The family of this 141-nucleotide sequence from Paenibacillus sp. J2TS4 is "c-di-AMP riboswitch aptamer (ydaO/yuaA leader)". A search with the family's covariance model found it, with a score of 92 bits. Taxonomically the source falls in Paenibacillus (Bacteria, Bacillota, Bacilli, Paenibacillaceae).
RNA sequence: GUAGACUUCUGGCCGAAGCACAAAAAACUGAAAUUGUGCGCGGGGGAACCAAUAGUGGGGUGAAACGGCCUCAAGGCCGUCGGGCGAUUACUCUUUGACCCGAACCCGUCAGCUAACCUCGCAGGCCAACAAAGAGGAGGA
Number, nucleotide and partner (000 for none) at each position: 001g000002u000003a000004g000005a000006c000007u000008u000009c000010u000011g127012g126013c125014c124015g000016a000017a000018g039019c038020a037021c036022a035023a034024a000025a000026a000027a000028c000029u000030g000031a000032a000033a000034u023035u022036g021037u020038g019039c018040g122041c121042g120043g119044g118045g117046g000047a000048a000049c000050c057051a056052a000053u000054a000055g000056u051057g050058g107059g106060g105061u000062g000063a000064a000065a000066c079067g078068g077069c076070c000071u000072c000073a000074a000075g000076g069077c068078c067079g066080u000081c000082g101083g100084g099085c000086g000087a000088u000089u000090a000091c000092u000093c000094u000095u000096u000097g000098a000099c084100c083101c082102g000103a000104a000105c060106c059107c058108g000109u000110c000111a000112g000113c000114u000115a000116a000117c045118c044119u043120c042121g041122c040123a000124g014125g013126c012127c011128a000129a000130c000131a000132a000133a000134g000135a000136g000137g000138a000139g000140g000141a000